[Rfam]
RNA sequence: CCAGUCGGUCGGGCAGCCGCACCGGUCGCGCGAAAGCAAUCCGGUGAGGAAAGUCCGGGCUCCAUGAAAGCACGGUGCCGGGUAACGCCCGGCGGAGGCGACUCUAGGGAAAGUGCCACAGAAAGCAAACCGCCAGACUGCGGUCUGGUAAGGGUGAAAGGGUGAGGUAAGAGCUCACCGCGCCUUCAGCAAUGAAGAUGGCAGGGUAAACCCCACCGGGAGCAAAACCGAAUAGGAAUGGCGUGGGCGAAAGCCCGGCUUGCUUUCAAGCCAGUCAUUCGGGUGGGUUGCUAGAGGUGUUCAGCAAUGGGCACCCCAGAUGAAUGGUUGCCGCGUGAGGGCCUUGGUCCUCGCCAUACAAAACCCGGCUUACAGACCGACUGGUAUU
Number, nucleotide and partner (000 for none) at each position: 001c384002c383003a382004g381005u380006c379007g378008g377009u376010c375011g373012g332013g331014c330015a329016g328017c327018c326019g000020c046021a045022c044023c043024g042025g041026u000027c000028g000029c000030g000031c000032g000033a000034a000035a000036g000037c000038a000039a000040u000041c025042c024043g023044g022045u021046g020047a000048g000049g000050a000051a371052a370053g369054u000055c368056c367057g366058g365059g364060c222061u221062c220063c219064a000065u000066g000067a000068a266069a265070g264071c000072a000073c218074g217075g216076u215077g214078c092079c091080g090081g089082g088083u000084a000085a000086c000087g000088c082089c081090c080091g079092g078093c107094g105095g104096a103097g102098g000099c000100g000101a000102c097103u096104c095105u094106a000107g093108g213109g212110a000111a000112a000113g211114u210115g207116c206117c205118a000119c000120a000121g000122a000123a000124a000125g000126c000127a000128a000129a000130c153131c152132g149133c148134c147135a146136g145137a144138c143139u000140g000141c000142g000143g138144u137145c136146u135147g134148g133149u132150a000151a000152g131153g130154g000155u000156g000157a000158a000159a000160g000161g179162g178163u177164g176165a175166g174167g000168u000169a000170a000171g000172a000173g000174c166175u165176c164177a163178c162179c161180g202181c200182g199183c000184c197185u196186u195187c194188a193189g000190c000191a000192a000193u188194g187195a186196a185197g184198a000199u182200g181201g000202c180203a000204g000205g117206g116207u115208a000209a000210a114211c113212c109213c108214c077215a076216c075217c074218g073219g063220g062221a061222g060223c000224a000225a000226a289227a288228c287229c286230g000231a000232a000233u000234a000235g000236g280237a279238a278239u277240g276241g275242c000243g000244u000245g000246g000247g000248c000249g000250a000251a000252a000253g000254c000255c000256c000257g272258g271259c270260u269261u268262g000263c000264u070265u069266u068267c000268a261269a260270g259271c258272c257273a000274g000275u241276c240277a239278u238279u237280c236281g000282g000283g000284u000285g000286g229287g228288u227289u226290g000291c000292u000293a000294g000295a000296g315297g314298u313299g312300u311301u310302c309303a308304g000305c000306a000307a000308u303309g302310g301311g300312c299313a298314c297315c296316c000317c000318a000319g000320a000321u000322g000323a000324a000325u000326g018327g017328u016329u015330g014331c013332c012333g000334c000335g000336u000337g000338a000339g000340g000341g000342c000343c000344u000345u000346g000347g000348u000349c000350c000351u000352c000353g000354c000355c000356a000357u000358a000359c000360a000361a000362a000363a000364c059365c058366c057367g056368g055369c053370u052371u051372a000373c011374a000375g010376a009377c008378c007379g006380a005381c004382u003383g002384g001385u000386a000387u000388u000
This 388-nucleotide sequence from Cohaesibacter sp. ES.047 belongs to the Rfam family "Bacterial RNase P class A". Rfam classes the family as a ribozyme. Its family is annotated with ribonuclease P activity, dimeric ribonuclease P complex and tRNA processing in the Gene Ontology.